Description: A member of the RNA family "Mammalian CPEB3 ribozyme" from Alligator sinensis, 72 nucleotides long. The family has 14 seed sequences and 5,706 matches in Rfam 15.1. It scores 40 bits against the family's covariance model. Pairs were carried over by alignment from the consensus structure, which is taken from published work. Rfam links the family to the GO term RNA nuclease activity. The source organism's lineage runs through Eukaryota, Eumetazoa, Craniata, Crocodylia and Alligator.
RNA sequence: CUACCACAACAGCCAUAGAAAAGCACUCACAUUGUGGCCCUGUCGGAUUCAAACAAAUCUGUGAAUUCUGCU
Number, nucleotide and partner (000 for none) at each position: 001c000002u000003a000004c000005c000006a000007c000008a000009a000010c000011a000012g038013c037014c036015a000016u000017a072018g071019a000020a069021a067022a066023g035024c034025a033026c000027u000028c000029a000030c000031a000032u000033u025034g024035u023036g014037g013038c012039c000040c000041u000042g000043u000044c061045g060046g059047a058048u057049u056050c000051a000052a000053a000054c000055a000056a049057a048058u047059c046060u045061g044062u000063g000064a000065a000066u022067u021068c000069u020070g000071c018072u017